Rfam assigns this 75-nucleotide sequence from Albula goreensis to the family "mir-205 microRNA precursor family".
The literature on the family includes a 2003 paper in Science by Lim et al., "Vertebrate microRNA genes".
The base pairs follow the family's consensus structure, which was predicted with RNAalifold.
A search with the family's covariance model found it, with a score of 82 bits.
The family has 44 seed sequences and 1,154 matches in Rfam 15.1.
[Rfam]
RNA sequence: GCAUUCUAUCCUUCAUUCCACCGGAGUCUGUGUCUUUAAUCAAUCAGAUUCCAGUGGCGUGAAGAGCAAGAGACA
Numbered sequence: 001g002c003a004u005u006c007u008a009u010c011c012u013u014c015a016u017u018c019c020a021c022c023g024g025a026g027u028c029u030g031u032g033u034c035u036u037u038a039a040u041c042a043a044u045c046a047g048a049u050u051c052c053a054g055u056g057g058c059g060u061g062a063a064g065a066g067c068a069a070g071a072g073a074c075a
Stems, first nucleotide, its partner, number of pairs: 011064006019056003023052004028047003